[Rfam]
Nucleotides: 138
Stems, first nucleotide, its partner, number of pairs: 003075006049065003053061001090101004105136012
Number, partner (000 for none) and nucleotide at each position: 001000a002000c003075a004074u005073c006072u007071g008070u009000u010000a011000a012000g013000g014000a015000a016000a017000u018000g019000a020000u021000u022000a023000a024000a025000a026000a027000u028000a029000a030000u031000u032000u033000g034000g035000u036000a037000g038000a039000g040000g041000u042000u043000a044000u045000u046000u047000u048000u049065a050064g051063u052000c053061g054000g055000c056000a057000u058000a059000g060000a061053u062000a063051g064050c065049u066000c067000c068000a069000a070008a071007c072006a073005g074004g075003u076000a077000g078000a079000g080000u081000a082000c083000a084000a085000a086000g087000u088000a089000a090101a091100u092099u093098c094000g095000u096000u097000a098093g099092g100091g101090u102000a103000c104000u105136a106135a107134a108133a109132g110131a111130c112129c113128g114127a115126u116125g117000u118000u119000u120000u121000u122000u123000a124000a125116c126115a127114u128113c129112g130111g131110u132109c133108u134107u135106u136105u137000u138000u

Haemophilus regulatory RNA responsive to iron: a 138-nucleotide RNA from Pasteurella bettyae. The match comes from Rfam's covariance-model search (84 bits). On this family, see Santana et al., PLoS One 2014: "HrrF is the Fur-regulated small RNA in nontypeable Haemophilus influenzae". About the family: Involved in iron homeostasis in Haemophilus species. The organism belongs to Pasteurella bettyae, within Bacteria.